Shown here is a 171-nucleotide sequence from Virgibacillus indicus, a member of the family "Group II catalytic intron D1-D4-3".
RNA sequence: UCUGGGGCGACCCAGAAUCUGAAGGAAGUCGGCGGCAAAUCUCCGCCCUUAGGAACACGAACUUCAUCAGGCUAGGUAUACUUGGGUGAGGUUGCAUUACAAACUAAAACCCUUACUGCCAAAGGGUAUACAAAGUAAAUGAAGUGGGGACAUGGAGAGGAAGAAUGUGUG
Numbered sequence: 001u002c003u004g005g006g007g008c009g010a011c012c013c014a015g016a017a018u019c020u021g022a023a024g025g026a027a028g029u030c031g032g033c034g035g036c037a038a039a040u041c042u043c044c045g046c047c048c049u050u051a052g053g054a055a056c057a058c059g060a061a062c063u064u065c066a067u068c069a070g071g072c073u074a075g076g077u078a079u080a081c082u083u084g085g086g087u088g089a090g091g092u093u094g095c096a097u098u099a100c101a102a103a104c105u106a107a108a109a110c111c112c113u114u115a116c117u118g119c120c121a122a123a124g125g126g127u128a129u130a131c132a133a134a135g136u137a138a139a140u141g142a143a144g145u146g147g148g149g150a151c152a153u154g155g156a157g158a159g160g161a162a163g164a165a166u167g168u169g170u171g
Stems, first nucleotide, its partner, number of pairs: 001016006030169002036163001040158006046149004062144005071136003076131006084112004090105004